[Rfam]
RNA sequence: GCCCCAGCUAGGCCCGCCUCGAAACCGGGCCGAAAAGCCAGUUCCCCCGCUGGCCUGCUGGGGCUCCUGAUACCGGGG
Numbered sequence: 001g002c003c004c005c006a007g008c009u010a011g012g013c014c015c016g017c018c019u020c021g022a023a024a025c026c027g028g029g030c031c032g033a034a035a036a037g038c039c040a041g042u043u044c045c046c047c048c049g050c051u052g053g054c055c056u057g058c059u060g061g062g063g064c065u066c067c068u069g070a071u072a073c074c075g076g077g078g
Base pairs, nucleotide, nucleotide: 001064002063003062004061005060006059007058008057011031012030013029014028015027016026037054038053039052040051041050045078046077047076048075049074
A member of the RNA family "int-alpA RNA" from Acidovorax sp. JS42, 78 nucleotides long. From the family's description: Acidobacteria (1 example), Planctomycetes (1 example), Proteobacteria. It is annotated as a small RNA. The source organism's lineage runs through Bacteria, Pseudomonadati, Betaproteobacteria, Comamonadaceae and Acidovorax.